[Rfam]
RNA sequence: AGCCACGAAAGCGACUGGCGUGAUCGAGGUGGAGCACCACCGGGGAGCGUUCGAGGAGCGGGCACCGCGCGCCUGGGUGCCGCCC
Numbered sequence: 001a002g003c004c005a006c007g008a009a010a011g012c013g014a015c016u017g018g019c020g021u022g023a024u025c026g027a028g029g030u031g032g033a034g035c036a037c038c039a040c041c042g043g044g045g046a047g048c049g050u051u052c053g054a055g056g057a058g059c060g061g062g063c064a065c066c067g068c069g070c071g072c073c074u075g076g077g078u079g080c081c082g083c084c085c
Base pairs, nucleotide, nucleotide: 003056004055006053007052008051009050011048012047015044016043017073018072019071020070021069029040030039031038032037062080063079064078065077066076